[Rfam]
RNA sequence: GCGCCGUCCCGAGCGGCGUUCAGUGGCUCGAACGGGCCAGUGCGGCAGGGGUGGUGCCGUGUCGGCGCAGCACCACCCCCGCUGC
Number, nucleotide and partner (000 for none) at each position: 001g019002c018003g017004c016005c015006g014007u013008c000009c000010c000011g000012a000013g007014c006015g005016g004017c003018g002019u001020u000021c042022a041023g000024u039025g038026g000027c035028u034029c000030g000031a000032a000033c000034g028035g027036g000037c000038c025039a024040g000041u022042g021043c000044g000045g082046c081047a000048g079049g078050g077051g076052u075053g074054g073055u072056g071057c070058c000059g068060u067061g066062u000063c000064g000065g000066c061067g060068c059069a000070g057071c056072a055073c054074c053075a052076c051077c050078c049079c048080c000081g046082c045083u000084g000085c000
A member of the RNA family "Streptomyces RNA 6106" from Streptomyces viridochromogenes, 85 nucleotides long. The organism belongs to Streptomyces viridochromogenes, within Bacteria. A search with the family's covariance model found it, with a score of 81 bits. The base pairs follow the family's consensus structure. A reference for the family is Vockenhuber et al. (2011), "Deep sequencing-based identification of small non-coding RNAs in Streptomyces coelicolor", RNA Biol. Rfam classes the family as a small RNA. Identified by deep sequencing of transcriptome at the end of exponential growth phase. Appears smaller on northern blot than sequencing transcript. This indicates processing step. Streptomyces specific.